Rfam assigns this 221-nucleotide RNA sequence from Desulfobacter latus to the family "HNH endonuclease-associated RNA and ORF (HEARO) RNA".
It is annotated as a non-coding RNA gene.
NCBI's taxonomy places the organism under Bacteria, Pseudomonadati, Thermodesulfobacteriota, Desulfobacteraceae, Desulfobacter.

RNA sequence: GUCAACUACCCCUCGGCUAAAGACCGAGGGGCUUGAAAAAGCCCCAAAGUUGACCAGUCUAAGUGCUUCGAACACUACGUUAGAUCGGAAACAGGUACCCUGGGGUGCCUGGGGUGCUCGCCAGCUCCAGGUUCUACGGUAAGUGGUUAAACAGGUUUAAGGGGUUAAGCCGGUGCUGCUUGCGCUAAACCCGGUCAUAACAUUGACGCGGCAAACAUUAC
Numbered sequence: 001g002u003c004a005a006c007u008a009c010c011c012c013u014c015g016g017c018u019a020a021a022g023a024c025c026g027a028g029g030g031g032c033u034u035g036a037a038a039a040a041g042c043c044c045c046a047a048a049g050u051u052g053a054c055c056a057g058u059c060u061a062a063g064u065g066c067u068u069c070g071a072a073c074a075c076u077a078c079g080u081u082a083g084a085u086c087g088g089a090a091a092c093a094g095g096u097a098c099c100c101u102g103g104g105g106u107g108c109c110u111g112g113g114g115u116g117c118u119c120g121c122c123a124g125c126u127c128c129a130g131g132u133u134c135u136a137c138g139g140u141a142a143g144u145g146g147u148u149a150a151a152c153a154g155g156u157u158u159a160a161g162g163g164g165u166u167a168a169g170c171c172g173g174u175g176c177u178g179c180u181u182g183c184g185c186u187a188a189a190c191c192c193g194g195u196c197a198u199a200a201c202a203u204u205g206a207c208g209c210g211g212c213a214a215a216c217a218u219u220a221c
Stems, first nucleotide, its partner, number of pairs: 001054007010031002012028002017022001032041003057207003061203001062076004079201004084195005095137002099131008116216001118214001120212003139183009151174002154171007